[Rfam]
Nucleotides: 069
Base pairs, nucleotide, nucleotide: 004065005064007062008061009060010059011058014056015055016054017053019050021048022047023046024045026043027042028041
Number, partner (000 for none) and nucleotide at each position: 001000c002000a003000g004065g005064u006000c007062a008061c009060c010059u011058c012000u013000a014056a015055a016054g017053a018000a019050g020000a021048c022047a023046c024045u025000g026043a027042u028041g029000a030000u031000u032000u033000g034000u035000u036000u037000u038000c039000u040000u041028c042027a043026u044000a045024a046023g047022u048021g049000c050019u051000u052000c053017u054016c055015u056014u057000u058011g059010g060009g061008g062007u063000u064005g065004u066000c067000u068000u069000g